The record is a 145-nucleotide RNA from Durio zibethinus, which matches "Small nucleolar RNA U19" in Rfam.

[Rfam]
RNA sequence: AUUUGGUUUAGUUAGGAGCAAAAUCAAUUCGAAAACCAGAGCUAUCGUUCUGAUAUUUUUGGCCACUUCAACUCAGGCCUUUUGAGGGGACUCUUUGGCUUUUAUUUCUUCGUCAAUUGUCCUCCCAAGCAGCCUUGGGACAUAU
Numbered sequence: 001a002u003u004u005g006g007u008u009u010a011g012u013u014a015g016g017a018g019c020a021a022a023a024u025c026a027a028u029u030c031g032a033a034a035a036c037c038a039g040a041g042c043u044a045u046c047g048u049u050c051u052g053a054u055a056u057u058u059u060u061g062g063c064c065a066c067u068u069c070a071a072c073u074c075a076g077g078c079c080u081u082u083u084g085a086g087g088g089g090a091c092u093c094u095u096u097g098g099c100u101u102u103u104a105u106u107u108c109u110u111c112g113u114c115a116a117u118u119g120u121c122c123u124c125c126c127a128a129g130c131a132g133c134c135u136u137g138g139g140a141c142a143u144a145u
Stems, first nucleotide, its partner, number of pairs: 004020002008017002036061001038059001043055004072139003075135004081129004086124006094116001

The family's consensus secondary structure was predicted with WAR. The organism belongs to Durio, within Eukaryota. Rfam classes the family as an H/ACA-box small nucleolar RNA. Gene Ontology terms of the family: RNA processing and nucleolus.